Rfam assigns this 103-nucleotide RNA from Natronincola peptidivorans to the family "Purine riboswitch aptamer". The family has 133 seed sequences and 4,097 matches in Rfam 15.1. The match comes from Rfam's covariance-model search (78 bits). The family's consensus secondary structure is taken from published work.
RNA sequence: AUAUGAUAUAAAAACAACACGCAUAUAAUAUCGAUAAUAAGGAUCGAUAGUUUCUACCUUAAGGACCGUAAAGCCUUGGACUAUGGGUGAAGUUAUUAUAUUU
Dot-bracket structure: .................(((.((((...(((((((.......)))))))........(.(((((.........))))))..)))).)))..............